[Rfam]
The record is a 195-nucleotide RNA sequence from Gordonia polyisoprenivorans, which matches "Actinobacteria sRNA Ms_IGR-5" in Rfam. Lineage of the source: Bacteria > Bacillati > Mycobacteriales > Gordoniaceae > Gordonia polyisoprenivorans. By type it is a small RNA.
RNA sequence: ACACAUGGAAGGAGGUGGUCCGAAGUUGAUUGGCAAACGGACAAGUGAGGUGACCAUCCGCUGACGCGGAGAUCCAUCUGAUAUCCCUCGAUCGAUCCCUCGCAUCGGCGAAUACCAGGUGGUCACCCGACCCCCGCACCCGACCUGGUCCGGUCGCUCGGCCCGAAUUCCCGGGCGGUGCGGGGGUCGUUCCAU
Numbered sequence: 001a002c003a004c005a006u007g008g009a010a011g012g013a014g015g016u017g018g019u020c021c022g023a024a025g026u027u028g029a030u031u032g033g034c035a036a037a038c039g040g041a042c043a044a045g046u047g048a049g050g051u052g053a054c055c056a057u058c059c060g061c062u063g064a065c066g067c068g069g070a071g072a073u074c075c076a077u078c079u080g081a082u083a084u085c086c087c088u089c090g091a092u093c094g095a096u097c098c099c100u101c102g103c104a105u106c107g108g109c110g111a112a113u114a115c116c117a118g119g120u121g122g123u124c125a126c127c128c129g130a131c132c133c134c135c136g137c138a139c140c141c142g143a144c145c146u147g148g149u150c151c152g153g154u155c156g157c158u159c160g161g162c163c164c165g166a167a168u169u170c171c172c173g174g175g176c177g178g179u180g181c182g183g184g185g186g187u188c189g190u191u192c193c194a195u
Stems, first nucleotide, its partner, number of pairs: 014058006059110006066103004071097003128189013